[Rfam]
RNA: Bacteroidales small SRP
RNA sequence: UUGCGCCGGGCAGCACACGGUUAGCUCCUCCUGAACUCCCCCAGGGCGGAAACGCAGCAAGGGUAGGGGGUUGUAGCGACCGGUGUGUCUGCCUUUUU
Numbered sequence: 001u002u003g004c005g006c007c008g009g010g011c012a013g014c015a016c017a018c019g020g021u022u023a024g025c026u027c028c029u030c031c032u033g034a035a036c037u038c039c040c041c042c043a044g045g046g047c048g049g050a051a052a053c054g055c056a057g058c059a060a061g062g063g064u065a066g067g068g069g070g071u072u073g074u075a076g077c078g079a080c081c082g083g084u085g086u087g088u089c090u091g092c093c094u095u096u097u098u
Base pairs, nucleotide, nucleotide: 008094009093010092011091012090013088014087015086016085017084018082019081020080021079